RNA sequence: CCAAUGGCGACAUUGGGUGUGAAGGAAGUCAGCGGCAAAGCACUGGCCUGACGUACAGAAACUUGAUAUCAAGGCGUUUGCUCGUGGGUAAGACUGCUAAAGAAGUCAAAGCCCGAUAGCUAUUCGGAACGAGUGGCGUAAAUCAAGCAGGUAUAAGUGUCAAAGAUUAUGCU
Numbered sequence: 001c002c003a004a005u006g007g008c009g010a011c012a013u014u015g016g017g018u019g020u021g022a023a024g025g026a027a028g029u030c031a032g033c034g035g036c037a038a039a040g041c042a043c044u045g046g047c048c049u050g051a052c053g054u055a056c057a058g059a060a061a062c063u064u065g066a067u068a069u070c071a072a073g074g075c076g077u078u079u080g081c082u083c084g085u086g087g088g089u090a091a092g093a094c095u096g097c098u099a100a101a102g103a104a105g106u107c108a109a110a111g112c113c114c115g116a117u118a119g120c121u122a123u124u125c126g127g128a129a130c131g132a133g134u135g136g137c138g139u140a141a142a143u144c145a146a147g148c149a150g151g152u153a154u155a156a157g158u159g160u161c162a163a164a165g166a167u168u169a170u171g172c173u
Stems, first nucleotide, its partner, number of pairs: 001016006028173001030171002036165001040160005046152005062147006074139003078135001080134006086114004092107004
RNA: Group II catalytic intron D1-D4-3